This 134-nucleotide RNA from Galemys pyrenaicus belongs to the Rfam family "small Cajal body-specific RNA 17". The base pairs follow the family's consensus structure, which is taken from published work. It scores 98 bits against the family's covariance model. About the family: scaRNAs are a specific class of small nuclear RNAs which localise to the Cajal bodies and guide the modification of RNA polymerase II transcribed spliceosomal RNAs U1, U2, U4, U5 and U12. The complete human U12-22/U4-8 scaRNA is composed of two tandem C/D box domains (termed U12-22 and U4-8).
[Rfam]
RNA sequence: CCCUGGUCCCCCAUGUUGCCCCCUAUGAGCCGACAAUAUUUUCCUUAUAUGAUCGGGCCCCACUGCUGGCGGUGCUGCUUGCCAGGAGCCUGAAAGGAUUAUGAAACGUGGCGAAGGGGGUCGGGGGACUUGGG
Numbered sequence: 001c002c003c004u005g006g007u008c009c010c011c012c013a014u015g016u017u018g019c020c021c022c023c024u025a026u027g028a029g030c031c032g033a034c035a036a037u038a039u040u041u042u043c044c045u046u047a048u049a050u051g052a053u054c055g056g057g058c059c060c061c062a063c064u065g066c067u068g069g070c071g072g073u074g075c076u077g078c079u080u081g082c083c084a085g086g087a088g089c090c091u092g093a094a095a096g097g098a099u100u101a102u103g104a105a106a107c108g109u110g111g112c113g114a115a116g117g118g119g120g121u122c123g124g125g126g127g128a129c130u131u132g133g134g
Base pairs, nucleotide, nucleotide: 001133003132005130006129007128008127009126010125011124018121019120020119021118022117053093054092055091056090057089058088060086061085065082066081068079069078070077071076